Rfam assigns this 87-nucleotide RNA sequence from Thalassovita mediterranea to the family "Glycine riboswitch aptamer". It scores 64 bits against the family's covariance model.
RNA sequence: GUCACCUGAUCGGGAGAACUGGUUUUACCAGUGCCGAAGGAGCAACCGCCCCGGAAUCUCUCAGGCCAAAAGGACCGAUCAGAACUG
Numbered sequence: 001g002u003c004a005c006c007u008g009a010u011c012g013g014g015a016g017a018a019c020u021g022g023u024u025u026u027a028c029c030a031g032u033g034c035c036g037a038a039g040g041a042g043c044a045a046c047c048g049c050c051c052c053g054g055a056a057u058c059u060c061u062c063a064g065g066c067c068a069a070a071a072g073g074a075c076c077g078a079u080c081a082g083a084a085c086u087g
Stems, first nucleotide, its partner, number of pairs: 006082008019031004033066003036062002040060003046054002
About this RNA:
Rfam links the family to the GO term glycine biosynthetic process.